[Rfam]
RNA sequence: CACGAUAAUGGCAAACCUGUCGAAAGGCAGGGACGCAAAGCUACAGGGCCUGUAAAUUUUUUACUGGCAGCCAGUUACCGAAG
Numbered sequence: 001c002a003c004g005a006u007a008a009u010g011g012c013a014a015a016c017c018u019g020u021c022g023a024a025a026g027g028c029a030g031g032g033a034c035g036c037a038a039a040g041c042u043a044c045a046g047g048g049c050c051u052g053u054a055a056a057u058u059u060u061u062u063a064c065u066g067g068c069a070g071c072c073a074g075u076u077a078c079c080g081a082a083g
Stems, first nucleotide, its partner, number of pairs: 001083001003080002011036002016031006034070001039076004046072002048068003